[Rfam]
RNA sequence: GCUGCACCUAGCCCGAGGUUGAUCCCCAAAGGCGAAAACUGGGAAACCCCUGCCCAGAUGGUGCGGCUCCUGAUUCAGGG
Numbered sequence: 001g002c003u004g005c006a007c008c009u010a011g012c013c014c015g016a017g018g019u020u021g022a023u024c025c026c027c028a029a030a031g032g033c034g035a036a037a038a039c040u041g042g043g044a045a046a047c048c049c050c051u052g053c054c055c056a057g058a059u060g061g062u063g064c065g066g067c068u069c070c071u072g073a074u075u076c077a078g079g080g
Stems, first nucleotide, its partner, number of pairs: 001067008011033003039057005047080003052075001
A member of the RNA family "int-alpA RNA" from Sulfurirhabdus autotrophica, 80 nucleotides long.
NCBI's taxonomy places the organism under Bacteria, Pseudomonadati, Betaproteobacteria, Sulfuricellaceae, Sulfurirhabdus.
Rfam classes the family as a small RNA.
Acidobacteria (1 example), Planctomycetes (1 example), Proteobacteria.